[Rfam]
RNA sequence: UUGAAGUUCCAUCUACAAAUGGAUAAAUUUUAUUUUUUUAAUUUAGUAUAGACGCGCUUUUUUUUUUUUUUGAAAGUCAAAGUAACGGAGAAAUACAAAAUAUCUUGUUCUAUCAAGAAACUAGUAUUGCUCCGU
Numbered sequence: 001u002u003g004a005a006g007u008u009c010c011a012u013c014u015a016c017a018a019a020u021g022g023a024u025a026a027a028u029u030u031u032a033u034u035u036u037u038u039u040a041a042u043u044u045a046g047u048a049u050a051g052a053c054g055c056g057c058u059u060u061u062u063u064u065u066u067u068u069u070u071u072g073a074a075a076g077u078c079a080a081a082g083u084a085a086c087g088g089a090g091a092a093a094u095a096c097a098a099a100a101u102a103u104c105u106u107g108u109u110c111u112a113u114c115a116a117g118a119a120a121c122u123a124g125u126a127u128u129g130c131u132c133c134g135u
Stems, first nucleotide, its partner, number of pairs: 008023005085135006092128005099122001103118004
Dot-bracket structure: .......(((((......))))).............................................................((((((.(((((..(...((((........))))...).))))).))))))